The family of this 257-nucleotide sequence from Schizosaccharomyces japonicus is "Nuclear RNase P". Rfam classes the family as a ribozyme. Its family is annotated with tRNA processing, ribonuclease P complex and ribonuclease P activity in the Gene Ontology. About the family: Ribonuclease P (RNase P) is a ubiquitous endoribonuclease, found in archaea, bacteria and eukarya as well as chloroplasts and mitochondria. Rfam's curators put it in the seed alignment.
[Rfam]
RNA sequence: UACGGGCGAACGCUGCACUUCCCCGAUCUCAUACGCGCAGAAAUGUGCUUUUCAUUCCUCGGGGGGGUAAGGUCGGAGGAACAUCUUCGUUGCGUGCUCGUGAGGAGCGGUGAAUGAUUAAUUCAGCCAGAUGUACCAGAAAUUCGACAAAAGCACACAAGUGUGGAUGUCUUGGAACGCAUCUGAGAAGAUUUCUUUUAGUGCAAUGUGCGGCACCUGCUUUGCGGGAAACUCAAUUCCGACUAAUCUUGCACGUA
Numbered sequence: 001u002a003c004g005g006g007c008g009a010a011c012g013c014u015g016c017a018c019u020u021c022c023c024c025g026a027u028c029u030c031a032u033a034c035g036c037g038c039a040g041a042a043a044u045g046u047g048c049u050u051u052u053c054a055u056u057c058c059u060c061g062g063g064g065g066g067g068u069a070a071g072g073u074c075g076g077a078g079g080a081a082c083a084u085c086u087u088c089g090u091u092g093c094g095u096g097c098u099c100g101u102g103a104g105g106a107g108c109g110g111u112g113a114a115u116g117a118u119u120a121a122u123u124c125a126g127c128c129a130g131a132u133g134u135a136c137c138a139g140a141a142a143u144u145c146g147a148c149a150a151a152a153g154c155a156c157a158c159a160a161g162u163g164u165g166g167a168u169g170u171c172u173u174g175g176a177a178c179g180c181a182u183c184u185g186a187g188a189a190g191a192u193u194u195c196u197u198u199u200a201g202u203g204c205a206a207u208g209u210g211c212g213g214c215a216c217c218u219g220c221u222u223u224g225c226g227g228g229a230a231a232c233u234c235a236a237u238u239c240c241g242a243c244u245a246a247u248c249u250u251g252c253a254c255g256u257a
Stems, first nucleotide, its partner, number of pairs: 001257004009250002014213001019208001021064005035048005074241005085190004095109005111125005128185007146171003216228004